[Rfam]
RNA sequence: CUUGGAGUAGGGACUAGCGCGUCAAGUGCCAUUGGAACGGAAUGUGAACUUUGGACGAAAAACGAUGCGUUUGCGAUGUUAGUCCCGCAUUCGCCACC
Numbered sequence: 001c002u003u004g005g006a007g008u009a010g011g012g013a014c015u016a017g018c019g020c021g022u023c024a025a026g027u028g029c030c031a032u033u034g035g036a037a038c039g040g041a042a043u044g045u046g047a048a049c050u051u052u053g054g055a056c057g058a059a060a061a062a063c064g065a066u067g068c069g070u071u072u073g074c075g076a077u078g079u080u081a082g083u084c085c086c087g088c089a090u091u092c093g094c095c096a097c098c
Stems, first nucleotide, its partner, number of pairs: 003096003010086010020075003026056002029054003034049001040092005060072004
Record summary
THF (Tetrahydrofolate) riboswitch aptamer: a 98-nucleotide RNA sequence from Nicoliella spurrieriana. Tetrahydrofolate (THF) riboswitch was first reported for Ames et al. as an RNA motif in 5' untranslated (5'-UTR)regions of folate transport and biosynthesis genes in Firmicutes genomes. The family's consensus secondary structure is taken from published work. Lineage of the source: Bacteria > Bacillati > Lactobacillales > Lactobacillaceae > Nicoliella.